Rfam assigns this 46-nucleotide RNA from Orycteropus afer to the family "Histone 3' UTR stem-loop". Lineage of the source: Eukaryota > Vertebrata > Dipnotetrapodomorpha > Eutheria > Orycteropus afer. The family has 50 seed sequences and 44,596 matches in Rfam 15.1.
RNA sequence: CCAAAGGCUCUUUUCAGAGCCACUCACUUAGUACAAAAGAACUGUU
Numbered sequence: 001c002c003a004a005a006g007g008c009u010c011u012u013u014u015c016a017g018a019g020c021c022a023c024u025c026a027c028u029u030a031g032u033a034c035a036a037a038a039g040a041a042c043u044g045u046u
Stems, first nucleotide, its partner, number of pairs: 006021006
Dot-bracket structure: .....((((((....)))))).........................
A search with the family's covariance model found it, with a score of 38 bits.
The family's RNA type in Rfam is cis-regulatory element.
The family's consensus secondary structure is taken from published work.